[Rfam]
RNA sequence: AAAAAGGGUGUUUACCGCUUCGAUGGUACGUGCGCCGGCGACGGCGCGCGGGGUAUGGUCAUCAAGACAUACCCAACACAUAAUUUUUAUAUUUUAGCGGGCUGUUGGCUACCACUUAUGUACCGGCGCCCCU
Numbered sequence: 001a002a003a004a005a006g007g008g009u010g011u012u013u014a015c016c017g018c019u020u021c022g023a024u025g026g027u028a029c030g031u032g033c034g035c036c037g038g039c040g041a042c043g044g045c046g047c048g049c050g051g052g053g054u055a056u057g058g059u060c061a062u063c064a065a066g067a068c069a070u071a072c073c074c075a076a077c078a079c080a081u082a083a084u085u086u087u088u089a090u091a092u093u094u095u096a097g098c099g100g101g102c103u104g105u106u107g108g109c110u111a112c113c114a115c116u117u118a119u120g121u122a123c124c125g126g127c128g129c130c131c132c133u
Base pairs, nucleotide, nucleotide: 008079009078010077011076012075013028014027015026016025017024029050030049031048032047033046034045035044036043037042051074052073053072054071055070056069057068099131100130101129102128104127105126106125107124108123110122111121112120
The family of this 133-nucleotide RNA from Bicyclus anynana is "U11 spliceosomal RNA". The family's consensus secondary structure is taken from published work. The source organism's lineage runs through Eukaryota, Altocrustacea, Endopterygota, Lepidoptera and Bicyclus.